[Rfam]
RNA sequence: GGGCAAUGACGAUUUGAAUGUUAUUAAGGUCUCGUUCGUCGUAAUUGGCCAUGUUGGCCUUGCCGACCAUCCUGAUAUAUCACCACCCAUAUUCCGAGUCC
Numbered sequence: 001g002g003g004c005a006a007u008g009a010c011g012a013u014u015u016g017a018a019u020g021u022u023a024u025u026a027a028g029g030u031c032u033c034g035u036u037c038g039u040c041g042u043a044a045u046u047g048g049c050c051a052u053g054u055u056g057g058c059c060u061u062g063c064c065g066a067c068c069a070u071c072c073u074g075a076u077a078u079a080u081c082a083c084c085a086c087c088c089a090u091a092u093u094c095c096g097a098g099u100c101c
Stems, first nucleotide, its partner, number of pairs: 001101004051061001
RNA: Small nucleolar RNA Z43